[Rfam]
RNA sequence: UGGCCUGAGGUGAUGAGUGUGGUUCAUGUCUCUUCUCUGAGAUUUAUCCUGGAGAUACUCCAAAGACUCUGAUCAGGCAG
Numbered sequence: 001u002g003g004c005c006u007g008a009g010g011u012g013a014u015g016a017g018u019g020u021g022g023u024u025c026a027u028g029u030c031u032c033u034u035c036u037c038u039g040a041g042a043u044u045u046a047u048c049c050u051g052g053a054g055a056u057a058c059u060c061c062a063a064a065g066a067c068u069c070u071g072a073u074c075a076g077g078c079a080g
Base pairs, nucleotide, nucleotide: 001080003078004077005076
Shown here is an 80-nucleotide RNA from Rhodinocichla rosea, a member of the family "Small nucleolar RNA SNORD111". The match comes from Rfam's covariance-model search (50 bits). Lineage of the source: Eukaryota > Eumetazoa > Amniota > Saurischia > Rhodinocichla. The family has 5 seed sequences and 894 matches in Rfam 15.1. Rfam classes the family as a C/D-box small nucleolar RNA. The family's consensus secondary structure was predicted with RNAalifold.